RNA: U12 minor spliceosomal RNA
Organism: Brassica napus
RNA sequence: UUGCCUUAAACUAAUGAGUAAGGAAAACAAAGCGAGCGAUGAGAGCCGGUCGCAGCGCUGACAGUAAAACAUAGAAAGUGGCGCAAGAAUUUAUGGAAGGGAAAUAGGCUGGCCGAACCGUUGACGCUGCUUACUUUUGCAGAACUCGAUUCGUGCGGGGGCCUCCACC
Numbered sequence: 001u002u003g004c005c006u007u008a009a010a011c012u013a014a015u016g017a018g019u020a021a022g023g024a025a026a027a028c029a030a031a032g033c034g035a036g037c038g039a040u041g042a043g044a045g046c047c048g049g050u051c052g053c054a055g056c057g058c059u060g061a062c063a064g065u066a067a068a069a070c071a072u073a074g075a076a077a078g079u080g081g082c083g084c085a086a087g088a089a090u091u092u093a094u095g096g097a098a099g100g101g102a103a104a105u106a107g108g109c110u111g112g113c114c115g116a117a118c119c120g121u122u123g124a125c126g127c128u129g130c131u132u133a134c135u136u137u138u139g140c141a142g143a144a145c146u147c148g149a150u151u152c153g154u155g156c157g158g159g160g161g162c163c164u165c166c167a168c169c
Stems, first nucleotide, its partner, number of pairs: 004023005032053004037048002055084005100169002106164005114153002117150001119148002127142004